[Rfam]
This 129-nucleotide RNA sequence from Clostridium magnum belongs to the Rfam family "Ribosomal protein L10 leader". It scores 80 bits against the family's covariance model.
RNA sequence: GUUAAAUAAGUAAAUAUUCCGUAGACAGUAGGUGCGAAAGCAUAAUGGUUUACCAGCCUACCGAGGGUUCCAAUAUAAUUAGUAUAUUUGGUCUCUCUGUGUCUACGGAGAGACUUUUAAAUUAUAUAA
Numbered sequence: 001g002u003u004a005a006a007u008a009a010g011u012a013a014a015u016a017u018u019c020c021g022u023a024g025a026c027a028g029u030a031g032g033u034g035c036g037a038a039a040g041c042a043u044a045a046u047g048g049u050u051u052a053c054c055a056g057c058c059u060a061c062c063g064a065g066g067g068u069u070c071c072a073a074u075a076u077a078a079u080u081a082g083u084a085u086a087u088u089u090g091g092u093c094u095c096u097c098u099g100u101g102u103c104u105a106c107g108g109a110g111a112g113a114c115u116u117u118u119a120a121a122u123u124a125u126a127u128a129a
Stems, first nucleotide, its partner, number of pairs: 028061006034041002091114010

NCBI's taxonomy places the organism under Bacteria, Bacillati, Bacillota, Clostridium, Clostridium magnum. It is annotated as a cis-regulatory leader. About the family: This family is a putative r-protein leader autoregulatory structure found in B. subtilis and other low-GC Gram-positive bacteria. It is located in the 5' untranslated regions of mRNAs encoding ribosomal proteins L10 and L12 (rplJ-rplL). A Rho-independent transcription terminator structure that is probably involved in regulation is included at the 3' end.